[Rfam]
RNA sequence: CUCUUAUCAAGAGUGGCGGAGGGACUGGCCCUGUGAAGCCCGGCAACCGUUAGAAGCUUUGCUUCUAAAAUGGUGCCAAUUCCUGCAGAAGCUUGGUCUUCUGAGAGAUAAGAG
Numbered sequence: 001c002u003c004u005u006a007u008c009a010a011g012a013g014u015g016g017c018g019g020a021g022g023g024a025c026u027g028g029c030c031c032u033g034u035g036a037a038g039c040c041c042g043g044c045a046a047c048c049g050u051u052a053g054a055a056g057c058u059u060u061g062c063u064u065c066u067a068a069a070a071u072g073g074u075g076c077c078a079a080u081u082c083c084u085g086c087a088g089a090a091g092c093u094u095g096g097u098c099u100u101c102u103g104a105g106a107g108a109u110a111a112g113a114g
Stems, first nucleotide, its partner, number of pairs: 001114008013041001015040003021031003025085001027083002042077004047073002050068006081106001086103006

The record is a 114-nucleotide sequence from Thermovenabulum gondwanense, which matches "SAM riboswitch aptamer (S box leader)" in Rfam. NCBI's taxonomy places the organism under Bacteria, Bacillati, Clostridia, Thermosediminibacteraceae, Thermovenabulum. The match comes from Rfam's covariance-model search (96 bits). Rfam links the family to the GO term regulation of gene expression.